[Rfam]
RNA sequence: AGUACCUUUAACAAAGUCCAGAGAGGCUUUCAAGGAUCGGAAAAAUAAGUAGUAGCUAAUUUCUCAGGUUUUGAAAUUGGUUACUCGGGUAAUCUCUGCCUUUUUCUGUACCCUGCCUCUGUGGUGGGGUUAUUUUUAU
Numbered sequence: 001a002g003u004a005c006c007u008u009u010a011a012c013a014a015a016g017u018c019c020a021g022a023g024a025g026g027c028u029u030u031c032a033a034g035g036a037u038c039g040g041a042a043a044a045a046u047a048a049g050u051a052g053u054a055g056c057u058a059a060u061u062u063c064u065c066a067g068g069u070u071u072u073g074a075a076a077u078u079g080g081u082u083a084c085u086c087g088g089g090u091a092a093u094c095u096c097u098g099c100c101u102u103u104u105u106c107u108g109u110a111c112c113c114u115g116c117c118u119c120u121g122u123g124g125u126g127g128g129g130u131u132a133u134u135u136u137u138a139u
Base pairs, nucleotide, nucleotide: 005035006034007033008032013030014029015028016027017026018025051085052084053083054082055081056080057079058078059077060076061075062074063073110130111129112128113127114126115125116124117123
Overview: Shown here is a 139-nucleotide RNA sequence from Streptococcus merionis, a member of the family "PyrR binding site". The family's RNA type in Rfam is cis-regulatory element. Rfam links the family to the GO terms pyrimidine nucleobase transport and pyrimidine nucleobase biosynthetic process. A search with the family's covariance model found it, with a score of 56 bits.